Description: Rfam assigns this 95-nucleotide RNA sequence from Caenorhabditis japonica to the family "mir-36 microRNA precursor family". On this family, see Lim et al., Genes Dev 2003: "The microRNAs of Caenorhabditis elegans". Clan: mir-36 clan.
[Rfam]
RNA sequence: CAGAAGAGCCAGGACCUACAUCAGUUUCUUUCCGCGGUAAUAAAUAAUACAUUAUUAUCACCGGGAGAAAAACUGGAGUAGGACCUGCGACUCGA
Numbered sequence: 001c002a003g004a005a006g007a008g009c010c011a012g013g014a015c016c017u018a019c020a021u022c023a024g025u026u027u028c029u030u031u032c033c034g035c036g037g038u039a040a041u042a043a044a045u046a047a048u049a050c051a052u053u054a055u056u057a058u059c060a061c062c063g064g065g066a067g068a069a070a071a072a073c074u075g076g077a078g079u080a081g082g083a084c085c086u087g088c089g090a091c092u093c094g095a
Stems, first nucleotide, its partner, number of pairs: 012085002015082004021076007029068005035063001037061002040058003